[Rfam]
RNA sequence: AGAACAUCCCUGAUGAUUUGCAUCCUUAUGUUAUCCUUGCACUAUGAUUGCUAGUGAAGAAACUUAUGGGGAAAUAAUUGGACUGAGAUGUUC
Number, nucleotide and partner (000 for none) at each position: 001a000002g093003a092004a091005c090006a089007u088008c087009c000010c000011u000012g000013a000014u000015g000016a000017u000018u000019u000020g000021c000022a000023u000024c000025c000026u000027u000028a000029u000030g000031u000032u000033a000034u000035c000036c000037u000038u000039g000040c000041a000042c000043u000044a000045u000046g000047a000048u000049u000050g000051c000052u000053a000054g000055u000056g000057a000058a000059g000060a000061a000062a000063c000064u000065u000066a000067u000068g000069g000070g000071g000072a000073a000074a000075u000076a000077a000078u000079u000080g000081g000082a000083c000084u000085g000086a000087g008088a007089u006090g005091u004092u003093c002
RNA: Small nucleolar RNA snoR26